A member of the RNA family "small nucleolar RNA snoR143" from Striga asiatica, 195 nucleotides long. The source organism's lineage runs through Eukaryota, Viridiplantae, Pentapetalae, lamiids and Striga. Its family is annotated with RNA processing and nucleolus in the Gene Ontology. The literature on the family includes a 2009 paper in Nucleic Acids Res by Chen and Wu, "Mining small RNA sequencing data: a new approach to identify small nucleolar RNAs in Arabidopsis".

[Rfam]
Nucleotides: 195
Stems, first nucleotide, its partner, number of pairs: 002083005009075003013072015130189008146172007
Number, partner (000 for none) and nucleotide at each position: 001000u002083u003082g004081c005080a006079c007000u008000a009075c010074g011073c012000a013072u014071c015070g016069a017068a018067g019066g020065c021064u022063u023062c024061u025060u026059c027058a028000a029000u030000a031000u032000u033000c034000u035000g036000u037000a038000a039000a040000a041000a042000g043000g044000a045000a046000u047000a048000u049000g050000a051000a052000a053000a054000a055000a056000u057000g058027u059026g060025g061024a062023g063022a064021a065020g066019c067018c068017u069016u070015u071014g072013a073011g074010c075009g076000g077000c078000u079006g080005u081004g082003c083002a084000g085000a086000a087000a088000u089000g090000g091000a092000a093000a094000g095000c096000c097000g098000g099000g100000c101000u102000c103000u104000g105000a106000a107000c108000c109000g110000g111000c112000g113000g114000c115000g116000g117000c118000c119000a120000g121000a122000c123000a124000a125000c126000c127000g128000c129000u130189g131188g132187g133186a134185u135184g136183g137182a138000u139000c140000c141000a142000c143000a144000g145000a146172g147171a148170a149169g150168c151167g152166c153000c154000g155000c156000c157000u158000c159000c160000u161000u162000c163000a164000c165000g166152g167151u168150g169149c170148u171147u172146c173000u174000c175000u176000a177000c178000u179000a180000a181000a182137u183136c184135c185134g186133u187132c188131u189130c190000a191000c192000a193000u194000u195000u